RNA sequence: UACUUCCAAAACAACAAAAGCCCUGCCUCUCUUUCGUCCUUGCGGCUCCGAUGACCGCGCCAGUGAAUCGAAAAUACCAAUGUCCU
Numbered sequence: 001u002a003c004u005u006c007c008a009a010a011a012c013a014a015c016a017a018a019a020g021c022c023c024u025g026c027c028u029c030u031c032u033u034u035c036g037u038c039c040u041u042g043c044g045g046c047u048c049c050g051a052u053g054a055c056c057g058c059g060c061c062a063g064u065g066a067a068u069c070g071a072a073a074a075u076a077c078c079a080a081u082g083u084c085c086u
Base pairs, nucleotide, nucleotide: 034066035065036064039063040062041059042058043057044056045055047053